[Rfam]
This 343-nucleotide RNA from Caproiciproducens galactitolivorans belongs to the Rfam family "Bacterial RNase P class A". It scores 270 bits against the family's covariance model. It is annotated as a ribozyme. Rfam links the family to the GO terms dimeric ribonuclease P complex, ribonuclease P activity and tRNA processing. Lineage of the source: Bacteria > Bacillota > Clostridia > Acutalibacteraceae > Caproiciproducens. The base pairs follow the family's consensus structure, which is taken from published work.
RNA sequence: CGAGCAGGCUGAACAGCCGCGGGUAUACUCCGAAAGGACGUACCCGAGGAAAGUCCGAGCUCCACAGGGCAGAAUAACGGCUAACGGCCGCCGGGGGCGACCCCAGGGAAAGUGCAACAGAGAUAUACCGCCGGUAACGGUAAGGGUGGAAAGGCGAGGUAAGAGCUCACCAGCGCGCGGGAGACCGCGCGGCUCUGCAAACCCUAUUCGGAGCAACACCGCAGAGGGACAAAUGCGUCGGCCCGGCGCGUCCCGAGAAGGUGGCAUUGAGCCGUGAUGGCAACAUCCGGCCAAGAUAGAUGGCUGUUCACGACAGAACUCGGCUUAUAGGCCUGGUCGUAUC
Numbered sequence: 001c002g003a004g005c006a007g008g009c010u011g012a013a014c015a016g017c018c019g020c021g022g023g024u025a026u027a028c029u030c031c032g033a034a035a036g037g038a039c040g041u042a043c044c045c046g047a048g049g050a051a052a053g054u055c056c057g058a059g060c061u062c063c064a065c066a067g068g069g070c071a072g073a074a075u076a077a078c079g080g081c082u083a084a085c086g087g088c089c090g091c092c093g094g095g096g097g098c099g100a101c102c103c104c105a106g107g108g109a110a111a112g113u114g115c116a117a118c119a120g121a122g123a124u125a126u127a128c129c130g131c132c133g134g135u136a137a138c139g140g141u142a143a144g145g146g147u148g149g150a151a152a153g154g155c156g157a158g159g160u161a162a163g164a165g166c167u168c169a170c171c172a173g174c175g176c177g178c179g180g181g182a183g184a185c186c187g188c189g190c191g192g193c194u195c196u197g198c199a200a201a202c203c204c205u206a207u208u209c210g211g212a213g214c215a216a217c218a219c220c221g222c223a224g225a226g227g228g229a230c231a232a233a234u235g236c237g238u239c240g241g242c243c244c245g246g247c248g249c250g251u252c253c254c255g256a257g258a259a260g261g262u263g264g265c266a267u268u269g270a271g272c273c274g275u276g277a278u279g280g281c282a283a284c285a286u287c288c289g290g291c292c293a294a295g296a297u298a299g300a301u302g303g304c305u306g307u308u309c310a311c312g313a314c315a316g317a318a319c320u321c322g323g324c325u326u327a328u329a330g331g332c333c334u335g336g337u338c339g340u341a342u343c
Stems, first nucleotide, its partner, number of pairs: 001339003005335006011328001012308007020046007051326003055323005060213004067244004072209005078090004092106001093104004107204002112202002114198003128145002130141004153171002156168003173193001174191007217263004226254005235249005271291004276287004